This 121-nucleotide sequence from Dissostichus mawsoni belongs to the Rfam family "Small nucleolar RNA SNORA26". Rfam links the family to the GO terms RNA processing and nucleolus. On this family, see Huttenhofer et al., EMBO J 2001: "RNomics: an experimental approach that identifies 201 candidates for novel, small, non-messenger RNAs in mouse". The snoRNA HBI-6 belong to the H/ACA family of snoRNAs, guiding the pseudouridylation of position U4522 if the 28S rRNA. HBI-6 is the human orthologue of mouse MBI-6 snoRNA. The family's consensus secondary structure was predicted with RNAalifold.
RNA sequence: UUGCCCACCCUGGACUAAUAAAUGUCCUUGGUGAUUAACACAGGGGGGCAAAUUGAAUCUCUCAUAAACCUGUAGUGAAGGAACACCGUCCUCUCUGCGGAUCCUGUCGGGAGAAACAAAC
Numbered sequence: 001u002u003g004c005c006c007a008c009c010c011u012g013g014a015c016u017a018a019u020a021a022a023u024g025u026c027c028u029u030g031g032u033g034a035u036u037a038a039c040a041c042a043g044g045g046g047g048g049c050a051a052a053u054u055g056a057a058u059c060u061c062u063c064a065u066a067a068a069c070c071u072g073u074a075g076u077g078a079a080g081g082a083a084c085a086c087c088g089u090c091c092u093c094u095c096u097g098c099g100g101a102u103c104c105u106g107u108c109g110g111g112a113g114a115a116a117c118a119a120a121c
Stems, first nucleotide, its partner, number of pairs: 002050005008044002016037002019034001059113005070100006079092003083089002